[Rfam]
RNA: TPP riboswitch aptamer (THI element)
Organism: Paracoccus isoporae
RNA sequence: CUUUCACCGUUGGGGUGCCCCGCACGGGGCUGAGAGGCGCAAUGCCAACCCAUGGAACCUGAUCCGGGCAAUACCGGCGGAGGGAACGGAGUUCAUGCAAUC
Numbered sequence: 001c002u003u004u005c006a007c008c009g010u011u012g013g014g015g016u017g018c019c020c021c022g023c024a025c026g027g028g029g030c031u032g033a034g035a036g037g038c039g040c041a042a043u044g045c046c047a048a049c050c051c052a053u054g055g056a057a058c059c060u061g062a063u064c065c066g067g068g069c070a071a072u073a074c075c076g077g078c079g080g081a082g083g084g085a086a087c088g089g090a091g092u093u094c095a096u097g098c099a100a101u102c
Base pairs, nucleotide, nucleotide: 007089008088009087010086011052012051013050014049017030018029019028020027021026039045040044058083059082060081064077065076066075067074